[Rfam]
RNA sequence: GUCCGCAUCGGCGGGGCUUCGGGGAGGUCGCGCUCUCUAAGCCACGCGGCCGCCGUCCGAACCCGCCGGGGUCGGAUGGUGGUGAUGGCCGUGGUGGUGCGCGAACCGCGUCAUGACGGGCGGGGCUAUAGCGGAGACGAUGCGGAGAGUCACGCACGCCCCUCCUCU
Number, nucleotide and partner (000 for none) at each position: 001g000002u015003c014004c013005g012006c011007a000008u000009c000010g000011g006012c005013g004014g003015g002016g159017c158018u000019u156020c000021g058022g057023g054024g053025a000026g051027g050028u000029c048030g047031c046032g045033c000034u000035c000036u000037c000038u000039a000040a000041g000042c000043c000044a000045c032046g031047c030048g029049g000050c027051c026052g000053c024054c023055g000056u000057c022058c021059g000060a000061a150062c149063c000064c147065g000066c145067c000068g000069g000070g000071g138072u137073c136074g000075g132076a000077u000078g000079g129080u128081g127082g126083u125084g000085a000086u123087g000088g121089c120090c118091g117092u000093g000094g114095u113096g112097g111098u110099g000100c108101g107102c000103g000104a000105a000106c000107c101108g100109c000110g098111u097112c096113a095114u094115g000116a000117c091118g090119g000120g089121c088122g000123g086124g000125g083126c082127u081128a080129u079130a000131g000132c075133g000134g000135a000136g073137a072138c071139g000140a000141u000142g000143c000144g000145g066146a000147g064148a000149g062150u061151c000152a000153c000154g000155c000156a019157c000158g017159c016160c000161c000162c000163u000164c000165c000166u000167c000168u000

Rfam assigns this 168-nucleotide RNA sequence from Phenylobacterium zucineum to the family "caulobacter sRNA CC3513". Lineage of the source: Bacteria > Pseudomonadati > Caulobacterales > Phenylobacterium > Phenylobacterium zucineum. The base pairs follow the family's consensus structure.